[Rfam]
RNA sequence: CAGAAUAGCAAGGGGAGCGGAAAUGCUGAGAGGUGUGUAUGAAAAGACACACGACCCUGAACCUGAUUUGGAUAAUGCCAACGUAGGAAUGCUUACAGAGCAUAUA
Numbered sequence: 001c002a003g004a005a006u007a008g009c010a011a012g013g014g015g016a017g018c019g020g021a022a023a024u025g026c027u028g029a030g031a032g033g034u035g036u037g038u039a040u041g042a043a044a045a046g047a048c049a050c051a052c053g054a055c056c057c058u059g060a061a062c063c064u065g066a067u068u069u070g071g072a073u074a075a076u077g078c079c080a081a082c083g084u085a086g087g088a089a090u091g092c093u094u095a096c097a098g099a100g101c102a103u104a105u106a
Stems, first nucleotide, its partner, number of pairs: 007093004011058004017026003033052005062087004068081004
RNA: TPP riboswitch aptamer (THI element)
Organism: Anaerovibrio lipolyticus